RNA sequence: AAUCCGGCUUCUGGCCAAAUAUCAGCUGGUAAUUCUGGGGUUUUUACACCCAGACUACCAGUUGGUAUACAGUUAGAAGCUGAA
Numbered sequence: 001a002a003u004c005c006g007g008c009u010u011c012u013g014g015c016c017a018a019a020u021a022u023c024a025g026c027u028g029g030u031a032a033u034u035c036u037g038g039g040g041u042u043u044u045u046a047c048a049c050c051c052a053g054a055c056u057a058c059c060a061g062u063u064g065g066u067a068u069a070c071a072g073u074u075a076g077a078a079g080c081u082g083a084a
Base pairs, nucleotide, nucleotide: 011076012075013074014073015072019068020067021066022065023064024063025062026061027060028059029058032056034054035053036052037051038050039049
RNA: mir-283 microRNA precursor family
Organism: Parnassius apollo